The record is a 149-nucleotide RNA sequence from Nonomuraea zeae, which matches "c-di-AMP riboswitch aptamer (ydaO/yuaA leader)" in Rfam. The match comes from Rfam's covariance-model search (84 bits). About the family: This family represents a conserved RNA structure found upstream of the ydaO and yuaA genes in Bacillus subtilis and related genes in other bacteria.

RNA sequence: GAGUCCGUCGGGCCUAAUCCACACAGCCGCUGUGUGGAGCCGGGGACCCACUUUCCCCCCUGGGGCGAAUCGGCACACCCUCCGUGCCGUAGGGCUACUUCCAGGCCCGAGCCCGUCAGCUAACCCGGCCGGCCGUAUGGAAGGACAGU
Numbered sequence: 001g002a003g004u005c006c007g008u009c010g011g012g013c014c015u016a017a018u019c020c021a022c023a024c025a026g027c028c029g030c031u032g033u034g035u036g037g038a039g040c041c042g043g044g045g046a047c048c049c050a051c052u053u054u055c056c057c058c059c060c061u062g063g064g065g066c067g068a069a070u071c072g073g074c075a076c077a078c079c080c081u082c083c084g085u086g087c088c089g090u091a092g093g094g095c096u097a098c099u100u101c102c103a104g105g106c107c108c109g110a111g112c113c114c115g116u117c118a119g120c121u122a123a124c125c126c127g128g129c130c131g132g133c134c135g136u137a138u139g140g141a142a143g144g145a146c147a148g149u
Base pairs, nucleotide, nucleotide: 011134012133013132014131018038019037020036021035022034023033024032039129040128041127042126043125044124049062050061063114064113065112071089072088073087074086092108093107094106095105